[Rfam]
RNA sequence: AGGUGUAAAUUACAUUGUAGAAGCGUGCUCGUCGCGACCCCUGCCAGCCCUUUUCAGGGCUGCAAUUCUACA
Numbered sequence: 001a002g003g004u005g006u007a008a009a010u011u012a013c014a015u016u017g018u019a020g021a022a023g024c025g026u027g028c029u030c031g032u033c034g035c036g037a038c039c040c041c042u043g044c045c046a047g048c049c050c051u052u053u054u055c056a057g058g059g060c061u062g063c064a065a066u067u068c069u070a071c072a
Stems, first nucleotide, its partner, number of pairs: 013036001016072007023035003045062007
Dot-bracket structure: ............[..((((((((((.......)))]........(((((((....)))))))...)))))))